The record is a 206-nucleotide RNA from Caballeronia sp. SBC1, which matches "Burkholderia sRNA Bp1_Cand738_SIPHT" in Rfam.
The source organism's lineage runs through Bacteria, Pseudomonadati, Pseudomonadota, Burkholderiaceae and Caballeronia.
By type it is a small RNA.
A search with the family's covariance model found it, with a score of 85 bits.
A reference for the family is Khoo et al. (2012), "Computational discovery and RT-PCR validation of novel Burkholderia conserved and Burkholderia pseudomallei unique sRNAs", BMC Genomics.
RNA sequence: CGAAAAACCGGCGAAGAAGAGCGCCGGCAAGAAAACCAAAACCUUGAUUCACCGUACUAAUCCGGUGCAGGUGACGCGUCGCGUCGUUUCAAAAGACCUGAGGCAGUGGUAAAAAGUUUCAAUUGGUGUUGUCAAUGCCAAAGGAUUCUAGCAGGCUCAAAUGAUCCGUCAAUGCUGGUAAAUGUAAAAGCUAUUACUUUCAGUAA
Numbered sequence: 001c002g003a004a005a006a007a008c009c010g011g012c013g014a015a016g017a018a019g020a021g022c023g024c025c026g027g028c029a030a031g032a033a034a035a036c037c038a039a040a041a042c043c044u045u046g047a048u049u050c051a052c053c054g055u056a057c058u059a060a061u062c063c064g065g066u067g068c069a070g071g072u073g074a075c076g077c078g079u080c081g082c083g084u085c086g087u088u089u090c091a092a093a094a095g096a097c098c099u100g101a102g103g104c105a106g107u108g109g110u111a112a113a114a115a116g117u118u119u120c121a122a123u124u125g126g127u128g129u130u131g132u133c134a135a136u137g138c139c140a141a142a143g144g145a146u147u148c149u150a151g152c153a154g155g156c157u158c159a160a161a162u163g164a165u166c167c168g169u170c171a172a173u174g175c176u177g178g179u180a181a182a183u184g185u186a187a188a189a190g191c192u193a194u195u196a197c198u199u200u201c202a203g204u205a206a
Base pairs, nucleotide, nucleotide: 008027009026010025011024012023013022042109043108045106050067051066052065053064054063073085074084075083076082077081136174137173141169143167144166149163150162